[Rfam]
RNA sequence: CCGGGCACACGCGGACGCCCGGUCAGGCGCGGCCCGUGCCCAAGUUCCGC
Number, nucleotide and partner (000 for none) at each position: 001c022002c021003g020004g019005g018006c017007a000008c000009a000010c000011g050012c049013g048014g047015a046016c000017g006018c005019c004020c003021g002022g001023u000024c000025a000026g040027g039028c038029g037030c036031g000032g000033c000034c000035c000036g030037u029038g028039c027040c026041c000042a000043a000044g000045u000046u015047c014048c013049g012050c011

Shown here is a 50-nucleotide RNA sequence from Alteraurantiacibacter buctensis, a member of the family "chrB-b RNA".